[Rfam]
RNA sequence: UUAGCUAUCUUUCCUUCGUGUAGCUACUGUUCAUGUUGGUUUAAUAUAUGAUGGGUCCCUACUAGGGACCCAUAUAUGUAUUAAGCUGAUUUCUGAACAGGGAGAUGGAAUAGGGGUUUGCUCCUUUCCUCUCCAUGCAUCUCCCGGUAUAACACCACUUCCGGGAUUGAUGCCCUAACC
Numbered sequence: 001u002u003a004g005c006u007a008u009c010u011u012u013c014c015u016u017c018g019u020g021u022a023g024c025u026a027c028u029g030u031u032c033a034u035g036u037u038g039g040u041u042u043a044a045u046a047u048a049u050g051a052u053g054g055g056u057c058c059c060u061a062c063u064a065g066g067g068a069c070c071c072a073u074a075u076a077u078g079u080a081u082u083a084a085g086c087u088g089a090u091u092u093c094u095g096a097a098c099a100g101g102g103a104g105a106u107g108g109a110a111u112a113g114g115g116g117u118u119u120g121c122u123c124c125u126u127u128c129c130u131c132u133c134c135a136u137g138c139a140u141c142u143c144c145c146g147g148u149a150u151a152a153c154a155c156c157a158c159u160u161c162c163g164g165g166a167u168u169g170a171u172g173c174c175c176u177a178a179c180c
Stems, first nucleotide, its partner, number of pairs: 034053005054070007101134005107128002113124004137173005143165005
RNA: U2 spliceosomal RNA
Organism: Bagarius yarrelli